Shown here is a 108-nucleotide RNA from Xanthomonas albilineans, a member of the family "Glycine riboswitch aptamer". The source organism's lineage runs through Bacteria, Gammaproteobacteria, Lysobacteraceae, Xanthomonas and Xanthomonas albilineans. The match comes from Rfam's covariance-model search (61 bits).
[Rfam]
RNA sequence: CACCAAGACUCUGGAGAGACCGGUCAAACCCGGCGCCGAAGGGGCACGAAGCGCAGCGCGAUCCACGGCGGCUUCCAAACUCUCAGGCAAAAGGACAGAGGGGCACAU
Numbered sequence: 001c002a003c004c005a006a007g008a009c010u011c012u013g014g015a016g017a018g019a020c021c022g023g024u025c026a027a028a029c030c031c032g033g034c035g036c037c038g039a040a041g042g043g044g045c046a047c048g049a050a051g052c053g054c055a056g057c058g059c060g061a062u063c064c065a066c067g068g069c070g071g072c073u074u075c076c077a078a079a080c081u082c083u084c085a086g087g088c089a090a091a092a093g094g095a096c097a098g099a100g101g102g103g104c105a106c107a108u
Stems, first nucleotide, its partner, number of pairs: 009100005020033004035088003038084002042082003048075005